[Rfam]
RNA sequence: ACAAAGGCUCUUUUAAGAGCCACCAAAUCAUCCUUAAAGAGUUUU
Number, nucleotide and partner (000 for none) at each position: 001a000002c000003a000004a000005a000006g021007g020008c019009u018010c017011u016012u000013u000014u000015a000016a011017g010018a009019g008020c007021c006022a000023c000024c000025a000026a000027a000028u000029c000030a000031u000032c000033c000034u000035u000036a000037a000038a000039g000040a000041g000042u000043u000044u000045u000